[Rfam]
RNA sequence: GGUUUCCUUCGGGGCAGGGUGGAAUUCCCUACCGGCGGUGAUGAGCAUAGCGCUCUCAGUCCGUGACCCGGCUGAUUAAGGUCAGACGGUGGAUUUGGUGAAACUCCAAAGCCGACAGUGAUAGUCUGGAUGGGAGAAGGAAAGG
Numbered sequence: 001g002g003u004u005u006c007c008u009u010c011g012g013g014g015c016a017g018g019g020u021g022g023a024a025u026u027c028c029c030u031a032c033c034g035g036c037g038g039u040g041a042u043g044a045g046c047a048u049a050g051c052g053c054u055c056u057c058a059g060u061c062c063g064u065g066a067c068c069c070g071g072c073u074g075a076u077u078a079a080g081g082u083c084a085g086a087c088g089g090u091g092g093a094u095u096u097g098g099u100g101a102a103a104c105u106c107c108a109a110a111g112c113c114g115a116c117a118g119u120g121a122u123a124g125u126c127u128g129g130a131u132g133g134g135a136g137a138a139g140g141a142a143a144g145g
Stems, first nucleotide, its partner, number of pairs: 003143008017029003031125002033114002035064004059112002068089002094110005116128003
Rfam assigns this 145-nucleotide sequence from Rossellomorea aquimaris to the family "FMN riboswitch aptamer (RFN element)". The family's consensus secondary structure is taken from published work. The organism belongs to Rossellomorea, within Bacteria. It scores 114 bits against the family's covariance model.